[Rfam]
Notes:
SAM riboswitch aptamer (S box leader): a 104-nucleotide sequence from Isachenkonia alkalipeptolytica. Taxonomically the source falls in Isachenkonia (Bacteria, Bacillati, Eubacteriales, Clostridiaceae).
RNA sequence: ACCUUAUCCAGAGUGGUGGAGGGACUGGCCCUAUGAAACCCGGCAACCAGGAAGAAAUUCCGAGGUGCUAAAUCCAGCAGUGCAUGGUCACUGGAAGAUGAGGA
Numbered sequence: 001a002c003c004u005u006a007u008c009c010a011g012a013g014u015g016g017u018g019g020a021g022g023g024a025c026u027g028g029c030c031c032u033a034u035g036a037a038a039c040c041c042g043g044c045a046a047c048c049a050g051g052a053a054g055a056a057a058u059u060c061c062g063a064g065g066u067g068c069u070a071a072a073u074c075c076a077g078c079a080g081u082g083c084a085u086g087g088u089c090a091c092u093g094g095a096a097g098a099u100g101a102g103g104a
Stems, first nucleotide, its partner, number of pairs: 002103007013041001015040003021031003025077004042069004047065002050060003073096001078093005